[Rfam]
A member of the RNA family "Plastid-ccsA-ndhD-1 3UTR RNA" from Amaranthus hypochondriacus, 53 nucleotides long. Taxonomically the source falls in Amaranthus (Eukaryota, Viridiplantae, Embryophyta, Magnoliopsida). Plastid-ccsA-ndhD-1 is a non-coding RNA (ncRNA) recognised in plastids. It was found in the three prime untranslated region (3UTR) of ccsA and ndhD genes, its 3UTR location suggests a role in transcript maturation. The family's consensus secondary structure was predicted with LocARNA. Its Rfam clan is "Plastid-ccsA_ndhD 3UTR RNA clan". By type it is a cis-regulatory element.
RNA sequence: UAUAAGCAGGUGAGAACCGUUUAAAUCAUGAUUUAAACGGUUCUCACAAACGU
Numbered sequence: 001u002a003u004a005a006g007c008a009g010g011u012g013a014g015a016a017c018c019g020u021u022u023a024a025a026u027c028a029u030g031a032u033u034u035a036a037a038c039g040g041u042u043c044u045c046a047c048a049a050a051c052g053u
Stems, first nucleotide, its partner, number of pairs: 010047017